[Rfam]
RNA sequence: AGAGGCCUUCUGCGGCCAGGGUGGAAGGCUUGCCUCGUUGCCACGGCAACAAAGCAAGCAUCCUGCCAGGCCACUCACGCUGCCCAC
Numbered sequence: 001a002g003a004g005g006c007c008u009u010c011u012g013c014g015g016c017c018a019g020g021g022u023g024g025a026a027g028g029c030u031u032g033c034c035u036c037g038u039u040g041c042c043a044c045g046g047c048a049a050c051a052a053a054g055c056a057a058g059c060a061u062c063c064u065g066c067c068a069g070g071c072c073a074c075u076c077a078c079g080c081u082g083c084c085c086a087c
Base pairs, nucleotide, nucleotide: 004084005083006082012074014072015071016070017069020067021066022065023064024063026061028059029058030057031056032055033054037050038049039048040047041046
mir-9195 microRNA precursor family: an 87-nucleotide RNA from Myotis lucifugus. Lineage of the source: Eukaryota > Deuterostomia > Craniata > Amniota > Myotis. A search with the family's covariance model found it, with a score of 92 bits.